[Rfam]
RNA sequence: GCCGAUGCUUUAGAUAGAUUCGGAAGGCGUGCUUCCGGGGCGGCGAUAGCGCGAUUGCAAGGCGUUGUUGCCGUUUACAUA
Numbered sequence: 001g002c003c004g005a006u007g008c009u010u011u012a013g014a015u016a017g018a019u020u021c022g023g024a025a026g027g028c029g030u031g032c033u034u035c036c037g038g039g040g041c042g043g044c045g046a047u048a049g050c051g052c053g054a055u056u057g058c059a060a061g062g063c064g065u066u067g068u069u070g071c072c073g074u075u076u077a078c079a080u081a
Stems, first nucleotide, its partner, number of pairs: 021037005039075014
COG2827 RNA: an 81-nucleotide RNA. Pairs were carried over by alignment from the consensus structure, which is taken from published work.